Annotation
The family of this 94-nucleotide RNA sequence from Butyricicoccus pullicaecorum is "Glycine riboswitch aptamer". The base pairs follow the family's consensus structure.
RNA sequence: GGAUGUGGCUCUGGAGAAUCCCAACCAUGGGUGCCGAAGGUGCAAGGUGCAGAAAAUGCGCUAAUCUCUCAGGCAAAAGGACAGAGUGGAUUUU
Numbered sequence: 001g002g003a004u005g006u007g008g009c010u011c012u013g014g015a016g017a018a019u020c021c022c023a024a025c026c027a028u029g030g031g032u033g034c035c036g037a038a039g040g041u042g043c044a045a046g047g048u049g050c051a052g053a054a055a056a057u058g059c060g061c062u063a064a065u066c067u068c069u070c071a072g073g074c075a076a077a078a079g080g081a082c083a084g085a086g087u088g089g090a091u092u093u094u
Stems, first nucleotide, its partner, number of pairs: 006089001008087006020031004033074003036070002040068001042066001046061001